Notes: This 84-nucleotide RNA sequence from Marisediminitalea lipolytica belongs to the Rfam family "c-di-GMP-I riboswitch aptamer". Its family is annotated with cyclic-di-GMP binding in the Gene Ontology. The base pairs follow the family's consensus structure, which is taken from published work.
RNA sequence: CAAUGAAAAAGGCAAAGCAUUCUGAAAAGAUGUGACGCAAAACUUCCGGUCUACGUCGAUGGAUAAGAUAGCGGGGUUACCGAA
Numbered sequence: 001c002a003a004u005g006a007a008a009a010a011g012g013c014a015a016a017g018c019a020u021u022c023u024g025a026a027a028a029g030a031u032g033u034g035a036c037g038c039a040a041a042a043c044u045u046c047c048g049g050u051c052u053a054c055g056u057c058g059a060u061g062g063a064u065a066a067g068a069u070a071g072c073g074g075g076g077u078u079a080c081c082g083a084a
Stems, first nucleotide, its partner, number of pairs: 012038002017033004022029002041078004046074003049069003056063002

The match comes from Rfam's covariance-model search (71 bits).